[Rfam]
RNA sequence: GUGGAGGGCCGGACGGCCGCCUUGGGGAAACCCCGGGAGGAAAGUCCGGACUCGCCAAAGCACCGGUGCCGGGUAACGCCCGGGCAGGGCAACCUGACGGAAAGCGCCACAGAAAACAGACCGCCUGUCGCCUGUCGGCAGGUAAGGGUGAAACGGUGGGGUAAGAGCCCACCGGGGGGAUGGCAACAUCGCCCGCUUGGCAAGCCCCACCGGGAGCAAUGCCGUGUAGGGACCUCGCGUCCGACUGAUCCCGCUUGCGGGAUAUCGGGACAGGGCGGCUUUGGCCCGAGAGGUCCGGGUUGGCAGCUAGAGCCGCGCGGCAACGUGCGGCCCAGAGGAAUGGUCGUCUGAGGGGGCAACCCCGACAACAGAAUCCGGCUUACAGGCCCUCCGCGCAU
Numbered sequence: 001g002u003g004g005a006g007g008g009c010c011g012g013a014c015g016g017c018c019g020c021c022u023u024g025g026g027g028a029a030a031c032c033c034c035g036g037g038a039g040g041a042a043a044g045u046c047c048g049g050a051c052u053c054g055c056c057a058a059a060g061c062a063c064c065g066g067u068g069c070c071g072g073g074u075a076a077c078g079c080c081c082g083g084g085c086a087g088g089g090c091a092a093c094c095u096g097a098c099g100g101a102a103a104g105c106g107c108c109a110c111a112g113a114a115a116a117c118a119g120a121c122c123g124c125c126u127g128u129c130g131c132c133u134g135u136c137g138g139c140a141g142g143u144a145a146g147g148g149u150g151a152a153a154c155g156g157u158g159g160g161g162u163a164a165g166a167g168c169c170c171a172c173c174g175g176g177g178g179g180a181u182g183g184c185a186a187c188a189u190c191g192c193c194c195g196c197u198u199g200g201c202a203a204g205c206c207c208c209a210c211c212g213g214g215a216g217c218a219a220u221g222c223c224g225u226g227u228a229g230g231g232a233c234c235u236c237g238c239g240u241c242c243g244a245c246u247g248a249u250c251c252c253g254c255u256u257g258c259g260g261g262a263u264a265u266c267g268g269g270a271c272a273g274g275g276c277g278g279c280u281u282u283g284g285c286c287c288g289a290g291a292g293g294u295c296c297g298g299g300u301u302g303g304c305a306g307c308u309a310g311a312g313c314c315g316c317g318c319g320g321c322a323a324c325g326u327g328c329g330g331c332c333c334a335g336a337g338g339a340a341u342g343g344u345c346g347u348c349u350g351a352g353g354g355g356g357c358a359a360c361c362c363c364g365a366c367a368a369c370a371g372a373a374u375c376c377g378g379c380u381u382a383c384a385g386g387c388c389c390u391c392c393g394c395g396c397a398u
Stems, first nucleotide, its partner, number of pairs: 001394010011383001012348007020037003024033003042381003046378005051216003058282003064212005069083005084098001085096004099207002104205002106201003121147002123143008155173006174196001175194003179190004220305004230296006273287004312331008

This 398-nucleotide sequence from Sagittula stellata belongs to the Rfam family "Bacterial RNase P class A". By type it is a ribozyme.